RNA sequence: AAUAAAGAUAGAGGUUGCAGAUGAUCAUUAGUAGGAAAAUAGAGGGCCGGCCAGCUCAGUGAAGUUUUCUAAAAGGGAGAUCUGCCGAAAUUCAUUCUCUGUGCCGGGAGAGUGGGUUGGGGCAUCGGAAAAUAUCCGUUGUACUGUCGUUGUCUAUACCAAGACAAUGGAGUGCUAUCUUACCG
Numbered sequence: 001a002a003u004a005a006a007g008a009u010a011g012a013g014g015u016u017g018c019a020g021a022u023g024a025u026c027a028u029u030a031g032u033a034g035g036a037a038a039a040u041a042g043a044g045g046g047c048c049g050g051c052c053a054g055c056u057c058a059g060u061g062a063a064g065u066u067u068u069c070u071a072a073a074a075g076g077g078a079g080a081u082c083u084g085c086c087g088a089a090a091u092u093c094a095u096u097c098u099c100u101g102u103g104c105c106g107g108g109a110g111a112g113u114g115g116g117u118u119g120g121g122g123c124a125u126c127g128g129a130a131a132a133u134a135u136c137c138g139u140u141g142u143a144c145u146g147u148c149g150u151u152g153u154c155u156a157u158a159c160c161a162a163g164a165c166a167a168u169g170g171a172g173u174g175c176u177a178u179c180u181u182a183c184c185g
Stems, first nucleotide, its partner, number of pairs: 006180006017085006025078002034070007089118012119145002122142003126138004147170007
Rfam assigns this 185-nucleotide RNA sequence from Ilyobacter polytropus to the family "Lysine riboswitch aptamer".
The base pairs follow the family's consensus structure, which is taken from published work.
Taxonomically the source falls in Ilyobacter polytropus (Bacteria, Fusobacteriota, Fusobacteriales, Fusobacteriaceae).
About the family: Riboswitches are metabolite binding domains within certain messenger RNAs that serve as precision sensors for their corresponding targets.
A search with the family's covariance model found it, with a score of 109 bits.